[Rfam]
RNA sequence: GGGGCUGUUUUGGAUUUGACGAAAUUUAUAAAACUUAAGGUGCAUAUCGAGGAAGGUUGCCUCGUUAAAAACCUAAAAAAUAUAAAUGAAAAAAAUAAUAGCUAUGCUUUAGCAGCUUAAAAUAUUCAUAUAAUUUUUUUUGAUUUUGUUCUCUUACAAAACAAAAAUAUUUUUUUAUAAGAGAUCACAUUUUAUUAAUUUCCUAAUGAUAAAUUGUUAAAUAUUAUAGGAUAUUUCUAUUAAUAACGAGUUAGUUCCGUUAUAAUUUAGAAAAAAAAAUAAAGACUAACUAAAUAUGUAGUACCUUAGUGUAAUAUAUUUCGGACGCGGGUUCGAAUCCCGCCAGCUCCAUUA
Numbered sequence: 001g002g003g004g005c006u007g008u009u010u011u012g013g014a015u016u017u018g019a020c021g022a023a024a025u026u027u028a029u030a031a032a033a034c035u036u037a038a039g040g041u042g043c044a045u046a047u048c049g050a051g052g053a054a055g056g057u058u059g060c061c062u063c064g065u066u067a068a069a070a071a072c073c074u075a076a077a078a079a080a081u082a083u084a085a086a087u088g089a090a091a092a093a094a095a096u097a098a099u100a101g102c103u104a105u106g107c108u109u110u111a112g113c114a115g116c117u118u119a120a121a122a123u124a125u126u127c128a129u130a131u132a133a134u135u136u137u138u139u140u141u142g143a144u145u146u147u148g149u150u151c152u153c154u155u156a157c158a159a160a161a162c163a164a165a166a167a168u169a170u171u172u173u174u175u176u177a178u179a180a181g182a183g184a185u186c187a188c189a190u191u192u193u194a195u196u197a198a199u200u201u202c203c204u205a206a207u208g209a210u211a212a213a214u215u216g217u218u219a220a221a222u223a224u225u226a227u228a229g230g231a232u233a234u235u236u237c238u239a240u241u242a243a244u245a246a247c248g249a250g251u252u253a254g255u256u257c258c259g260u261u262a263u264a265a266u267u268u269a270g271a272a273a274a275a276a277a278a279a280u281a282a283a284g285a286c287u288a289a290c291u292a293a294a295u296a297u298g299u300a301g302u303a304c305c306u307u308a309g310u311g312u313a314a315u316a317u318a319u320u321u322c323g324g325a326c327g328c329g330g331g332u333u334c335g336a337a338u339c340c341c342g343c344c345a346g347c348u349c350c351a352u353u354a
Stems, first nucleotide, its partner, number of pairs: 001350007020323006027316003033310003037307006043298005048064005054074005108132001110130002114126002133168005144161004150184007187217003191213005200233001203230002235272005242267002246260003250290004256285002327343005
Dot-bracket structure: (((((((............((((((.(((...(((.((((((((((((((((.[[[[[.))))).....]]]]].................................(.((..((.........))..)).)[[[[[......[[[[..(((((((.]]]]..]]]]].........)))))))..(((.(((((....[..[[....))))).)))...........]]..].(((((..((..(((.[[[[..[[))).....)))))))...........]].]]]]...)))))...)))))))))...))).))))))...(((((.......))))))))))))....

The record is a 354-nucleotide RNA sequence from Candidatus Annandia adelgestsuga, which matches "transfer-messenger RNA" in Rfam. The organism belongs to Candidatus Annandia, within Bacteria. Rfam's curators write: Bacterial tmRNA, also known as 10Sa RNA or SsrA, is named for its dual tRNA and mRNA-like properties. It is annotated as a non-coding RNA gene.